Rfam assigns this 107-nucleotide RNA from Chiloscyllium punctatum to the family "mir-223 microRNA precursor family".
Pairs were carried over by alignment from the consensus structure, which was predicted with RNAalifold.
The family has 27 seed sequences and 674 matches in Rfam 15.1.
[Rfam]
RNA sequence: CAAGUGAUCACAGCUUCUGCACUGAGUGUAUUUGACAAGCUGAAUUCAGACACUCAAUUUAAAACAGUGUCAGUUUGUCAAAUACCCCAAGUGCAGAGCUGAAACGC
Numbered sequence: 001c002a003a004g005u006g007a008u009c010a011c012a013g014c015u016u017c018u019g020c021a022c023u024g025a026g027u028g029u030a031u032u033u034g035a036c037a038a039g040c041u042g043a044a045u046u047c048a049g050a051c052a053c054u055c056a057a058u059u060u061a062a063a064a065c066a067g068u069g070u071c072a073g074u075u076u077g078u079c080a081a082a083u084a085c086c087c088c089a090a091g092u093g094c095a096g097a098g099c100u101g102a103a104a105c106g107c
Base pairs, nucleotide, nucleotide: 020093021092022091023090026087028085029084030083031082032081033080034079035078036077037076038075039074040073041072049071050070051069052068054066